[Rfam]
RNA: Small nucleolar RNA SNORA72
Organism: Ailuropoda melanoleuca
RNA sequence: CUGAAAAAGUCUAUUCAAAGAUUUUUUUUUUUUAAGCAGGGGAACAUUUGCUAUAUUAAGAUCACACGUGUGUCUCCAGACCUAGUUCUUUCUCUAGGUCUGGUUUUAUAAAGACUGGUGGUAAAC
Numbered sequence: 001c002u003g004a005a006a007a008a009g010u011c012u013a014u015u016c017a018a019a020g021a022u023u024u025u026u027u028u029u030u031u032u033u034a035a036g037c038a039g040g041g042g043a044a045c046a047u048u049u050g051c052u053a054u055a056u057u058a059a060g061a062u063c064a065c066a067c068g069u070g071u072g073u074c075u076c077c078a079g080a081c082c083u084a085g086u087u088c089u090u091u092c093u094c095u096a097g098g099u100c101u102g103g104u105u106u107u108a109u110a111a112a113g114a115c116u117g118g119u120g121g122u123a124a125a126c
Stems, first nucleotide, its partner, number of pairs: 003051001005049001011039002014036002017033005061119004076103010
Dot-bracket structure: ..(.(.....((.((.(((((.......))))).)).)).........).).........((((...........((((((((((........))))))))))............)))).......